[Rfam]
RNA sequence: UCCUGGCGCCCUUCAUUCCGCCGGAAUCCGUGGAUGCGGGAGCCGGAUUUCGGCGGAGUGAAGCCCCUCAGAGG
Numbered sequence: 001u002c003c004u005g006g007c008g009c010c011c012u013u014c015a016u017u018c019c020g021c022c023g024g025a026a027u028c029c030g031u032g033g034a035u036g037c038g039g040g041a042g043c044c045g046g047a048u049u050u051c052g053g054c055g056g057a058g059u060g061a062a063g064c065c066c067c068u069c070a071g072a073g074g
Stems, first nucleotide, its partner, number of pairs: 011063006019055003023051004028046003
The family of this 74-nucleotide RNA sequence from Dasyornis broadbenti is "mir-205 microRNA precursor family". The source organism's lineage runs through Eukaryota, Euteleostomi, Sauropsida, Telluraves and Dasyornis. A reference for the family is Chen et al. (2005), "The developmental miRNA profiles of zebrafish as determined by small RNA cloning", Genes Dev. The base pairs follow the family's consensus structure, which was predicted with RNAalifold. Rfam links the family to the GO terms miRNA-mediated post-transcriptional gene silencing and RISC complex.